Shown here is a 105-nucleotide sequence from Alkalicoccobacillus porphyridii, a member of the family "SAM riboswitch aptamer (S box leader)". The base pairs follow the family's consensus structure, which is taken from published work.
RNA sequence: UUCUUAUCAAGAGAGAUGGAGGGAAAGGCCCUAUGAAGUCUCAGCAACCAGCCUAUUUUUGGCAAGGUGCUAAAUCCGGCAGGGACAGUUCUGCUAAGAUAAGAG
Numbered sequence: 001u002u003c004u005u006a007u008c009a010a011g012a013g014a015g016a017u018g019g020a021g022g023g024a025a026a027g028g029c030c031c032u033a034u035g036a037a038g039u040c041u042c043a044g045c046a047a048c049c050a051g052c053c054u055a056u057u058u059u060u061g062g063c064a065a066g067g068u069g070c071u072a073a074a075u076c077c078g079g080c081a082g083g084g085a086c087a088g089u090u091c092u093g094c095u096a097a098g099a100u101a102a103g104a105g
Stems, first nucleotide, its partner, number of pairs: 001105008013042005021031003027077002043071004048067002051063003075097001079094006